Shown here is a 56-nucleotide sequence from Nitrosovibrio sp. Nv17, a member of the family "nhaA-I RNA". Acidobacteria, Alphaproteobacteria, Betaproteobacteria and Gammaproteobacteria, Verrucomicrobia, cand. division NC10. Rfam classes the family as a riboswitch.
RNA sequence: GGGUGUCGGCCGCGCGUCGCGGCGAGACAGGUUCAUGCGCCGGUCGGGCCGCCGCG
Numbered sequence: 001g002g003g004u005g006u007c008g009g010c011c012g013c014g015c016g017u018c019g020c021g022g023c024g025a026g027a028c029a030g031g032u033u034c035a036u037g038c039g040c041c042g043g044u045c046g047g048g049c050c051g052c053c054g055c056g
Base pairs, nucleotide, nucleotide: 005028006027007026009023010022011021038056039055040054042053043052044051